This 183-nucleotide RNA from Vibrio eleionomae belongs to the Rfam family "Lysine riboswitch aptamer". The family's consensus secondary structure is taken from published work. From the family's description: Riboswitches are metabolite binding domains within certain messenger RNAs that serve as precision sensors for their corresponding targets. A search with the family's covariance model found it, with a score of 133 bits. Lineage of the source: Bacteria > Pseudomonadati > Gammaproteobacteria > Vibrionales > Vibrio.

RNA sequence: CGUCAACGUAGAGGCGCGGGAUUGAUCAGUAGCUAUGAUUGGAGUGAUGUCAAUGAAUCAUAGUAAAAGGCAAUACCGCCGAAGUGAAUAAACCUAUCACGUUUAUCUGCUGGGGUUGUAUUAAAUAAAUACAACACUGCCAUAGUCUAUUUUGUUGUUAAACUAUGGAGCGCUACUGUAGGG
Numbered sequence: 001c002g003u004c005a006a007c008g009u010a011g012a013g014g015c016g017c018g019g020g021a022u023u024g025a026u027c028a029g030u031a032g033c034u035a036u037g038a039u040u041g042g043a044g045u046g047a048u049g050u051c052a053a054u055g056a057a058u059c060a061u062a063g064u065a066a067a068a069g070g071c072a073a074u075a076c077c078g079c080c081g082a083a084g085u086g087a088a089u090a091a092a093c094c095u096a097u098c099a100c101g102u103u104u105a106u107c108u109g110c111u112g113g114g115g116u117u118g119u120a121u122u123a124a125a126u127a128a129a130u131a132c133a134a135c136a137c138u139g140c141c142a143u144a145g146u147c148u149a150u151u152u153u154g155u156u157g158u159u160a161a162a163c164u165a166u167g168g169a170g171c172g173c174u175a176c177u178g179u180a181g182g183g
Base pairs, nucleotide, nucleotide: 008176009175010174011173016079017078018077019076021074022073023072024071032064033063034062035061036060037059038058039057083111084110085109086108088106089105090104091103092102093101112138113137115135116134117133118132119131120130121129122128140168141167142166143165144164145163146162